[Rfam]
RNA: mir-282 microRNA precursor family
Organism: Dendroctonus ponderosae
RNA sequence: CGGGGACGUUAAGCUAGCCUCUCCUAGGCUUUGUCUGUCCGCUGCAAACCAGACAUGGCCUAGCUGGGGUUAACUUUAAGCCCUUAA
Numbered sequence: 001c002g003g004g005g006a007c008g009u010u011a012a013g014c015u016a017g018c019c020u021c022u023c024c025u026a027g028g029c030u031u032u033g034u035c036u037g038u039c040c041g042c043u044g045c046a047a048a049c050c051a052g053a054c055a056u057g058g059c060c061u062a063g064c065u066g067g068g069g070u071u072a073a074c075u076u077u078a079a080g081c082c083c084u085u086a087a
Base pairs, nucleotide, nucleotide: 012075013074015072016071017070018069019068020067027060028059029058030057032055033054034053035052036051